[Rfam]
RNA sequence: GGACGCGGGUGCCGCCAGGCCUCCGUUCCGCUCGCUUUCGACCCUGGCACACCUUCCCCGGCGCCAGGUGCGACGAGCGGGCGGGGACCUGGCGACACCCGCUUAGACAU
Numbered sequence: 001g002g003a004c005g006c007g008g009g010u011g012c013c014g015c016c017a018g019g020c021c022u023c024c025g026u027u028c029c030g031c032u033c034g035c036u037u038u039c040g041a042c043c044c045u046g047g048c049a050c051a052c053c054u055u056c057c058c059c060g061g062c063g064c065c066a067g068g069u070g071c072g073a074c075g076a077g078c079g080g081g082c083g084g085g086g087a088c089c090u091g092g093c094g095a096c097a098c099c100c101g102c103u104u105a106g107a108c109a110u
Base pairs, nucleotide, nucleotide: 010097011096013094014093015092016091018089019088021086022085023084024083025082026081028080029079030078031077032076033075038073039072040071043068044067045066046065047064048063050061